[Rfam]
This 52-nucleotide RNA sequence from Vagococcus coleopterorum belongs to the Rfam family "Ribosomal protein L13 leader". From the family's description: This family is a putative r-protein leader autoregulatory structure found in B. subtilis and other low-GC Gram-positive bacteria. Rfam classes the family as a cis-regulatory leader.

RNA sequence: GGUAUUGUUUGCCCCACGAUGAGCCCCGGAAACUUAUCGCGUCAAACAAAAA
Dot-bracket structure: .....((((((...(.(((((((.........))))))).).))))))....
Numbered sequence: 001g002g003u004a005u006u007g008u009u010u011g012c013c014c015c016a017c018g019a020u021g022a023g024c025c026c027c028g029g030a031a032a033c034u035u036a037u038c039g040c041g042u043c044a045a046a047c048a049a050a051a052a
Stems, first nucleotide, its partner, number of pairs: 006048006015041001017039007
The source organism's lineage runs through Bacteria, Bacillati, Bacillota, Enterococcaceae and Vagococcus. The base pairs follow the family's consensus structure, which was predicted with CMfinder.